[Rfam]
A member of the RNA family "Small nucleolar RNA SNORA79" from Parambassis ranga, 139 nucleotides long. The base pairs follow the family's consensus structure, which was predicted with RNAalifold. Taxonomically the source falls in Parambassis (Eukaryota, Metazoa, Eumetazoa, Actinopterygii). On this family, see Schattner et al., RNA 2006: "A computational screen for mammalian pseudouridylation guide H/ACA RNAs". ACA65 (SNORA79) is a member of the H/ACA class of snoRNAs that guide the sites of modification of uridines to pseudouridines.
RNA sequence: CGAUGUCAGUUCCUCCUCCUGAUUGCAGUAUAUCAGGAGGAUUUUAUGAUGUCGCAGAGAAAUGUGGGUCUUUUUCACCCAGUAAGCUUAAGGCUGCGGCCAGAAAUGAAGCUUCCUGGUUUUGCAGGACCCAACAUAU
Numbered sequence: 001c002g003a004u005g006u007c008a009g010u011u012c013c014u015c016c017u018c019c020u021g022a023u024u025g026c027a028g029u030a031u032a033u034c035a036g037g038a039g040g041a042u043u044u045u046a047u048g049a050u051g052u053c054g055c056a057g058a059g060a061a062a063u064g065u066g067g068g069u070c071u072u073u074u075u076c077a078c079c080c081a082g083u084a085a086g087c088u089u090a091a092g093g094c095u096g097c098g099g100c101c102a103g104a105a106a107u108g109a110a111g112c113u114u115c116c117u118g119g120u121u122u123u124g125c126a127g128g129a130c131c132c133a134a135c136a137u138a139u
Stems, first nucleotide, its partner, number of pairs: 001054008014041005020035004067131006079119004084114005